[Rfam]
RNA sequence: GGAUUGGAGGUCGUGGGUGCGCCCAGGCUCAUGCCGGCCUCACGGCCGGCUGUAUGUGCUGGGUGCUGGUCAGCAUCGGUUAGUCGGGCGGGAUAACAGCGGCCUUUGAUCGGCCGCCCCUGUCGCCCGGCUGUCCGAGGAAUGAAGAGCGCUCUCGGCCUUCGGGACCUGCGUUCUCAGGAUGCUGGCGGAAGGCCUCCAAUCUGCCCGUCUUGAAACACGG
Numbered sequence: 001g002g003a004u005u006g007g008a009g010g011u012c013g014u015g016g017g018u019g020c021g022c023c024c025a026g027g028c029u030c031a032u033g034c035c036g037g038c039c040u041c042a043c044g045g046c047c048g049g050c051u052g053u054a055u056g057u058g059c060u061g062g063g064u065g066c067u068g069g070u071c072a073g074c075a076u077c078g079g080u081u082a083g084u085c086g087g088g089c090g091g092g093a094u095a096a097c098a099g100c101g102g103c104c105u106u107u108g109a110u111c112g113g114c115c116g117c118c119c120c121u122g123u124c125g126c127c128c129g130g131c132u133g134u135c136c137g138a139g140g141a142a143u144g145a146a147g148a149g150c151g152c153u154c155u156c157g158g159c160c161u162u163c164g165g166g167a168c169c170u171g172c173g174u175u176c177u178c179a180g181g182a183u184g185c186u187g188g189c190g191g192a193a194g195g196c197c198u199c200c201a202a203u204c205u206g207c208c209c210g211u212c213u214u215g216a217a218a219c220a221c222g223g
Stems, first nucleotide, its partner, number of pairs: 001205012017066001020065007071187007208223004
RNA: Eukaryotic large subunit ribosomal RNA, nucleotides 421 to 643
Organism: Coccomyxa subellipsoidea